[Rfam]
RNA sequence: GAGGGAAAGGCCCCUCGCAGUCGAUGUACAGGCAUGGGCUGCAAACCCCCUUAAGCGGCGUUAGUCAAAAGCUCCCGUCGUGAGCGUUAAGGAAAAGGCGUUGAUAAACGUCAGGU
Numbered sequence: 001g002a003g004g005g006a007a008a009g010g011c012c013c014c015u016c017g018c019a020g021u022c023g024a025u026g027u028a029c030a031g032g033c034a035u036g037g038g039c040u041g042c043a044a045a046c047c048c049c050c051u052u053a054a055g056c057g058g059c060g061u062u063a064g065u066c067a068a069a070a071g072c073u074c075c076c077g078u079c080g081u082g083a084g085c086g087u088u089a090a091g092g093a094a095a096a097g098g099c100g101u102u103g104a105u106a107a108a109c110g111u112c113a114g115g116u
Stems, first nucleotide, its partner, number of pairs: 001016005017042006024035004047115001049092006055081002058078003063073003097112006
This 116-nucleotide RNA sequence from Thiothrix nivea belongs to the Rfam family "Group II catalytic intron D1-D4-2". For this family Rfam cites "Group II introns: structure and catalytic versatility of large natural ribozymes" (Lehmann and Schmidt, Crit Rev Biochem Mol Biol, 2003).